[Rfam]
RNA sequence: AUCCUCUCGUCACGUCGCCGUGCGAGUCAGUGCGCGAGAAGAGAUCGUCUUCGCGUCUGACCACGGAUGUACUGGCAGACUGGAUGGAGACGCAGGGAAAGGUCGGGCGCGUCCCGGCCUUUUUCGUA
Numbered sequence: 001a002u003c004c005u006c007u008c009g010u011c012a013c014g015u016c017g018c019c020g021u022g023c024g025a026g027u028c029a030g031u032g033c034g035c036g037a038g039a040a041g042a043g044a045u046c047g048u049c050u051u052c053g054c055g056u057c058u059g060a061c062c063a064c065g066g067a068u069g070u071a072c073u074g075g076c077a078g079a080c081u082g083g084a085u086g087g088a089g090a091c092g093c094a095g096g097g098a099a100a101g102g103u104c105g106g107g108c109g110c111g112u113c114c115c116g117g118c119c120u121u122u123u124u125c126g127u128a
Stems, first nucleotide, its partner, number of pairs: 004043003007039002047091007055080005061075003092127002095124001097123010107112001
The family of this 128-nucleotide sequence from Nitratireductor mangrovi is "Alphaproteobacterial sRNA ar35". It scores 46 bits against the family's covariance model. The source organism's lineage runs through Bacteria, Pseudomonadati, Alphaproteobacteria, Hyphomicrobiales and Nitratireductor. Pairs were carried over by alignment from the consensus structure. It is annotated as a small RNA.